[Rfam]
RNA: MIR4371 microRNA precursor family
Organism: Glycine max
RNA sequence: CCGUUAAUUGAUGAUAUGACAAAUAGAGUGUCACGUCAUCACAUCCAAUCACUGUCAUGUCAUAGCCACAUUAUUGAAUGUGAUGAUGUGAUAAUGGGGUGUUUGUGACAAGACGCGAAGAUGUGACAUUCUGUUUGUUACGUCAUCACUUAACGGAA
Numbered sequence: 001c002c003g004u005u006a007a008u009u010g011a012u013g014a015u016a017u018g019a020c021a022a023a024u025a026g027a028g029u030g031u032c033a034c035g036u037c038a039u040c041a042c043a044u045c046c047a048a049u050c051a052c053u054g055u056c057a058u059g060u061c062a063u064a065g066c067c068a069c070a071u072u073a074u075u076g077a078a079u080g081u082g083a084u085g086a087u088g089u090g091a092u093a094a095u096g097g098g099g100u101g102u103u104u105g106u107g108a109c110a111a112g113a114c115g116c117g118a119a120g121a122u123g124u125g126a127c128a129u130u131c132u133g134u135u136u137g138u139u140a141c142g143u144c145a146u147c148a149c150u151u152a153a154c155g156g157a158a
Stems, first nucleotide, its partner, number of pairs: 001156007009148007017140021039118002042115001044113002049108004054103001056101003070087005